[Rfam]
RNA sequence: UGAGUCGGCCAGACGGUCGCGUCAGGUCGGCGGCCUCCGGGCCGCCGGUCCUGCCGAGGAAAGUCCGGGCUCCACAGGGCACGGUGGUGGCCAACAGCCACCCGGGGCGACCCGCGGGACAGUGCCACAGAGAGUAGACAGCCUCGAGCUCGCUCGAGGUGAUGGUGAAAGGGUGGUGUAAGAGACCACCAGCGGCCCCGGUGACGGGGCCGGCUCGGUAAACCCCACCGGGAGCAAGCCCGAGCAGUAUGCGUUCGACGGCGGCCCGCCGGAGCAUACGGGUAGGGCGCUGGAGGUGGCCAGCAAUGGUCACCCGAGAUGGAUGGCCGUCCACGACAGAACCCGGCUUAUCGGCCGACUCAUCCA
Numbered sequence: 001u002g003a004g005u006c007g008g009c010c011a012g013a014c015g016g017u018c019g020c021g022u023c024a025g026g027u028c029g030g031c032g033g034c035c036u037c038c039g040g041g042c043c044g045c046c047g048g049u050c051c052u053g054c055c056g057a058g059g060a061a062a063g064u065c066c067g068g069g070c071u072c073c074a075c076a077g078g079g080c081a082c083g084g085u086g087g088u089g090g091c092c093a094a095c096a097g098c099c100a101c102c103c104g105g106g107g108c109g110a111c112c113c114g115c116g117g118g119a120c121a122g123u124g125c126c127a128c129a130g131a132g133a134g135u136a137g138a139c140a141g142c143c144u145c146g147a148g149c150u151c152g153c154u155c156g157a158g159g160u161g162a163u164g165g166u167g168a169a170a171g172g173g174u175g176g177u178g179u180a181a182g183a184g185a186c187c188a189c190c191a192g193c194g195g196c197c198c199c200g201g202u203g204a205c206g207g208g209g210c211c212g213g214c215u216c217g218g219u220a221a222a223c224c225c226c227a228c229c230g231g232g233a234g235c236a237a238g239c240c241c242g243a244g245c246a247g248u249a250u251g252c253g254u255u256c257g258a259c260g261g262c263g264g265c266c267c268g269c270c271g272g273a274g275c276a277u278a279c280g281g282g283u284a285g286g287g288c289g290c291u292g293g294a295g296g297u298g299g300c301c302a303g304c305a306a307u308g309g310u311c312a313c314c315c316g317a318g319a320u321g322g323a324u325g326g327c328c329g330u331c332c333a334c335g336a337c338a339g340a341a342c343c344c345g346g347c348u349u350a351u352c353g354g355c356c357g358a359c360u361c362a363u364c365c366a
Stems, first nucleotide, its partner, number of pairs: 001362010011351001012331007020056002023053004028048001061349003065346005070234004077267004082230005087101005102116001103114004117225002122223002124219003139164002141160008172190006192214001193212008238288004247279006259271004295314008
Dot-bracket structure: ((((((((((((((((((.((.((((.(...................).)))).))....[[[.[[[[[((((...[[[[.((((((((((.....)))))(((((....)))).)((...(((((............((((((((((....))))))))..)).......((((((.......)))))).(((((((((....)))))))).)..)))..)))))))))))))...((((.....((((((......((((.]]]]))))..)))))).....))))......((((((((....))))))))..........)))))))..........]]]]]]]].).))))))))))....
RNA: Bacterial RNase P class A
Organism: Nostocoides sp. F2B08